RNA sequence: CCGCCGGGACGACCCGGCGUGCGUCUGCGGUCGCGGGGACGGCCCCG
Numbered sequence: 001c002c003g004c005c006g007g008g009a010c011g012a013c014c015c016g017g018c019g020u021g022c023g024u025c026u027g028c029g030g031u032c033g034c035g036g037g038g039a040c041g042g043c044c045c046c047g
Stems, first nucleotide, its partner, number of pairs: 002019007034047005

The family of this 47-nucleotide RNA from Chitinasiproducens palmae is "Guanidine-II riboswitch aptamer (mini-ykkC)". Rfam 15.1 lists 1,589 matches to the family in 1,229 species. Lineage of the source: Bacteria > Pseudomonadati > Pseudomonadota > Burkholderiales > Chitinasiproducens. Simpler in structure and has fewer highly conserved nucleotide positions than the ykkC-yxkD leader. Despite this each of its two stem-loop structures directly bind free guanidine. Therefore, mini-ykkC RNA motif represents a distinct class of guanidine-sensing RNAs. Its crystal structure was also determined.